Fungal signal recognition particle RNA: a 300-nucleotide RNA sequence from Rhexocercosporidium sp. MPI-PUGE-AT-0058. The family's consensus secondary structure is taken from published work. The match comes from Rfam's covariance-model search (130 bits). The source organism's lineage runs through Eukaryota, Dikarya, leotiomyceta, Helotiales and Rhexocercosporidium. A reference for the family is Batey et al. (2001), "Structural and energetic analysis of RNA recognition by a universally conserved protein from the signal recognition particle", J Mol Biol.
[Rfam]
RNA sequence: UGGCUGUAACGGUCACAACUCGAAGGAGAUAUCAGUAUCCCUCACUCUCCCAGCCAUUUCUGCCCUUCAAAAGGCAACCACCAACAGUGCCCAGUCCGAACAUGGCGGUAACUCCCCACUCGUGCAGGCAACUCACGAUGCUGGCGGGGUUCUAAGCAAUGAAGUACACCGAUCUAGGGAGGUUUCACUCUGCAAAUCGAACUUCACCGUGGUGUGGCGGUGUUGGAUUACAUUCGUUGGUUUGGUUUGGCUGGUGGGUAUGGGUUGAGCGUCAACUUCAUUUUUUUUUCUAUUGGUUUU
Numbered sequence: 001u002g003g004c005u006g007u008a009a010c011g012g013u014c015a016c017a018a019c020u021c022g023a024a025g026g027a028g029a030u031a032u033c034a035g036u037a038u039c040c041c042u043c044a045c046u047c048u049c050c051c052a053g054c055c056a057u058u059u060c061u062g063c064c065c066u067u068c069a070a071a072a073g074g075c076a077a078c079c080a081c082c083a084a085c086a087g088u089g090c091c092c093a094g095u096c097c098g099a100a101c102a103u104g105g106c107g108g109u110a111a112c113u114c115c116c117c118a119c120u121c122g123u124g125c126a127g128g129c130a131a132c133u134c135a136c137g138a139u140g141c142u143g144g145c146g147g148g149g150u151u152c153u154a155a156g157c158a159a160u161g162a163a164g165u166a167c168a169c170c171g172a173u174c175u176a177g178g179g180a181g182g183u184u185u186c187a188c189u190c191u192g193c194a195a196a197u198c199g200a201a202c203u204u205c206a207c208c209g210u211g212g213u214g215u216g217g218c219g220g221u222g223u224u225g226g227a228u229u230a231c232a233u234u235c236g237u238u239g240g241u242u243u244g245g246u247u248u249g250g251c252u253g254g255u256g257g258g259u260a261u262g263g264g265u266u267g268a269g270c271g272u273c274a275a276c277u278u279c280a281u282u283u284u285u286u287u288u289u290c291u292a293u294u295g296g297u298u299u300u
Base pairs, nucleotide, nucleotide: 001015002014003013004012018298020296021295022294023293025291027289028288029287031285036267037266039264040263041262044259045258048257049256050254051253052252053251054250055249056248061076062075063074064073066071080242082239083238084237085236086234087233088232089231091226092225093224094223095222096220097219098218100215101214102213103212105210106209107208108207110151112149113148114147115146116144117143118142120138121137122136123135124134126133127132152156160206161205162204163203164202165201170199171198172197173196179190180189181188